[Rfam]
RNA sequence: GCCGGGCUCAAUAACGCGGGCUUGUAACCUAUGUGGGGGCAUUAAGGGUGCUUGAACUUUACCGCCGACCCAUUCGAUCGGAUCUGGAUUAGCUGAGUACUGGCCCGCCCGUUCCAAGUCGAAAGCCGAUCCAUGUGGUUUGGGCGAAGGCUUGGGCUUCUUGGAUCAUAGUCGAGAGGGCACAGCGUGAGGCUGGCUUAACAGAGCAGCGAUCACCUCCUACUUCCGGCAGUGGAAGGAUAACGGGUCGGUGCUAUCCGGGUCCAACAGGGUUCAAUGGGCGGCCUUUAAUGACAACCACUUUU
Numbered sequence: 001g002c003c004g005g006g007c008u009c010a011a012u013a014a015c016g017c018g019g020g021c022u023u024g025u026a027a028c029c030u031a032u033g034u035g036g037g038g039g040c041a042u043u044a045a046g047g048g049u050g051c052u053u054g055a056a057c058u059u060u061a062c063c064g065c066c067g068a069c070c071c072a073u074u075c076g077a078u079c080g081g082a083u084c085u086g087g088a089u090u091a092g093c094u095g096a097g098u099a100c101u102g103g104c105c106c107g108c109c110c111g112u113u114c115c116a117a118g119u120c121g122a123a124a125g126c127c128g129a130u131c132c133a134u135g136u137g138g139u140u141u142g143g144g145c146g147a148a149g150g151c152u153u154g155g156g157c158u159u160c161u162u163g164g165a166u167c168a169u170a171g172u173c174g175a176g177a178g179g180g181c182a183c184a185g186c187g188u189g190a191g192g193c194u195g196g197c198u199u200a201a202c203a204g205a206g207c208a209g210c211g212a213u214c215a216c217c218u219c220c221u222a223c224u225u226c227c228g229g230c231a232g233u234g235g236a237a238g239g240a241u242a243a244c245g246g247g248u249c250g251g252u253g254c255u256a257u258c259c260g261g262g263u264c265c266a267a268c269a270g271g272g273u274u275c276a277a278u279g280g281g282c283g284g285c286c287u288u289u290a291a292u293g294a295c296a297a298c299c300a301c302u303u304u305u
Base pairs, nucleotide, nucleotide: 001040002039003038004023005022006021007020008019009018028037029036030035044305045304046303047302048301049300050299052297053296054295058291060290061289064285065284066283067282070280071279072278073277074276076274077273078272079271080265081264082263083262084261085260086259087258088257090256091255092254094253095252100251101250102249103248104247105246106245107244109239110238112237113236114235115234116233118230119229120228121227123225124224125223128167129166130165131164132163133162135160137158138157139156140155141154142153143152144151145150174221176219177218178217179216184213186211187210188209193204194203195202